[Rfam]
RNA sequence: UGUAAGGGCUUCUGCCGUGCGUGGCACACAGGAAGCGGCGGGGUCCCCUCAGCCGUUUCUCGUGCAGAAUCGACAUCAAGUGAUUUCAGAAGCACAAUUUUUGUCCCCGGGGCCGCUGGUGAUCGCUUGUCCUGGAGAAGCA
Numbered sequence: 001u002g003u004a005a006g007g008g009c010u011u012c013u014g015c016c017g018u019g020c021g022u023g024g025c026a027c028a029c030a031g032g033a034a035g036c037g038g039c040g041g042g043g044u045c046c047c048c049u050c051a052g053c054c055g056u057u058u059c060u061c062g063u064g065c066a067g068a069a070u071c072g073a074c075a076u077c078a079a080g081u082g083a084u085u086u087c088a089g090a091a092g093c094a095c096a097a098u099u100u101u102u103g104u105c106c107c108c109g110g111g112g113c114c115g116c117u118g119g120u121g122a123u124c125g126c127u128u129g130u131c132c133u134g135g136a137g138a139a140g141c142a
Stems, first nucleotide, its partner, number of pairs: 008093005013026005027064003031060008067086005112141002116135004121131003
U11 spliceosomal RNA: a 142-nucleotide sequence from Ornithorhynchus anatinus. The base pairs follow the family's consensus structure, which is taken from published work. Rfam 15.1 lists 2,595 matches to the family in 1,202 species. The match comes from Rfam's covariance-model search (64 bits). By type it is a spliceosomal small nuclear RNA.